About this RNA
FMN riboswitch aptamer (RFN element): a 120-nucleotide RNA sequence from Firmicutes bacterium CAG:345. The match comes from Rfam's covariance-model search (86 bits). From the family's description: The RFN element is a highly conserved domain that is found frequently in the 5'-untranslated regions of prokaryotic mRNAs that encode for flavin mononucleotide (FMN) biosynthesis and transport proteins. This element is a metabolite-dependent riboswitch that directly binds FMN in the absence of proteins. In Bacillus subtilis, the riboswitch most likely controls gene expression by causing premature transcription termination within the 5' untranslated region of the ribDEAHT operon and precluding access to the ribosome-binding site of ypaA mRNA.The FMN riboswitch structure, reported in present an FMN-bound six-stem junction, adopts a butterfly-like scaffold, stapled together by opposingly directed but nearly identically folded peripheral domains. Lineage of the source: Bacteria > Bacillati > Bacillota. Pairs were carried over by alignment from the consensus structure, which is taken from published work.

RNA sequence: UUCUUGCUUCAGGGUUGGGUGAAAUUCCCACUCGGCGGUAAACCCCGCGACUCAUUGAAUAAUGACUGAUAAGGUGAAAUUCCUUAGGCGACAGUAAAGGCUGGUAUAAAGAGGCUAUAU
Numbered sequence: 001u002u003c004u005u006g007c008u009u010c011a012g013g014g015u016u017g018g019g020u021g022a023a024a025u026u027c028c029c030a031c032u033c034g035g036c037g038g039u040a041a042a043c044c045c046c047g048c049g050a051c052u053c054a055u056u057g058a059a060u061a062a063u064g065a066c067u068g069a070u071a072a073g074g075u076g077a078a079a080u081u082c083c084u085u086a087g088g089c090g091a092c093a094g095u096a097a098a099g100g101c102u103g104g105u106a107u108a109a110a111g112a113g114g115c116u117a118u119a120u
Stems, first nucleotide, its partner, number of pairs: 004117001006115005017029003031100002033090002035048004043088002052065002070086005092103003